[Rfam]
RNA sequence: GGAGUCGGCCAGACAAUCGCUGCCUUGUCGUUGUGCGGGUUCGCUCGCAGACGGGCAAGGGGGAGGAAAGUCCGGGCUCCACAGGGCAGGGUGCCAGGUAACGCCUGGGGGGCGCAAGCCUACGACCAGUGCAGCAGAGAGCAGACCGCCGAUGGCUCCCUCGGGAGCACAGGUAAGGGUGAAAGGGUGCGGUAAGAGCGCACCGCGCGGCUGGUAACAGACCGUGGCACGGUAAACUCCACCCGGAGCAAGACCAAAUAGGCCCCCAUUGGCGUGGCCCGCGUUGGGGGCGGGUAGGUUGCUUGAGCCCAGGAGCGAUCCUGGGCCUAGAGGAAUGAUUGUCCACGACAGAACCCGGCUUAUCGGCCGACUCCAACC
Numbered sequence: 001g002g003a004g005u006c007g008g009c010c011a012g013a014c015a016a017u018c019g020c021u022g023c024c025u026u027g028u029c030g031u032u033g034u035g036c037g038g039g040u041u042c043g044c045u046c047g048c049a050g051a052c053g054g055g056c057a058a059g060g061g062g063g064a065g066g067a068a069a070g071u072c073c074g075g076g077c078u079c080c081a082c083a084g085g086g087c088a089g090g091g092u093g094c095c096a097g098g099u100a101a102c103g104c105c106u107g108g109g110g111g112g113c114g115c116a117a118g119c120c121u122a123c124g125a126c127c128a129g130u131g132c133a134g135c136a137g138a139g140a141g142c143a144g145a146c147c148g149c150c151g152a153u154g155g156c157u158c159c160c161u162c163g164g165g166a167g168c169a170c171a172g173g174u175a176a177g178g179g180u181g182a183a184a185g186g187g188u189g190c191g192g193u194a195a196g197a198g199c200g201c202a203c204c205g206c207g208c209g210g211c212u213g214g215u216a217a218c219a220g221a222c223c224g225u226g227g228c229a230c231g232g233u234a235a236a237c238u239c240c241a242c243c244c245g246g247a248g249c250a251a252g253a254c255c256a257a258a259u260a261g262g263c264c265c266c267c268a269u270u271g272g273c274g275u276g277g278c279c280c281g282c283g284u285u286g287g288g289g290g291c292g293g294g295u296a297g298g299u300u301g302c303u304u305g306a307g308c309c310c311a312g313g314a315g316c317g318a319u320c321c322u323g324g325g326c327c328u329a330g331a332g333g334a335a336u337g338a339u340u341g342u343c344c345a346c347g348a349c350a351g352a353a354c355c356c357g358g359c360u361u362a363u364c365g366g367c368c369g370a371c372u373c374c375a376a377c378c
Base pairs, nucleotide, nucleotide: 001374002373003372004371005370006369007368008367009366010365011363012343013342014341015340016339017338018337020063021062023060024059025058026057027056028055068361069360070359072358073357074356075355076354077248078247079246080245084280085279086278087277089244090243091242092241093240094108095107096106097105098104109123110121111120112119113118124239125238129237130236131233132232146178147177148174149173150172155168156167157166158165159164186204187203188202189201190200191199205228206226207225208224209223210222211220212219213218252300253299254298255297262291263290264289265288266287267286271285272284273283274282275281307326308325309324310323311322312321313320314319
RNA: Bacterial RNase P class A
Organism: Ferrimonas sediminicola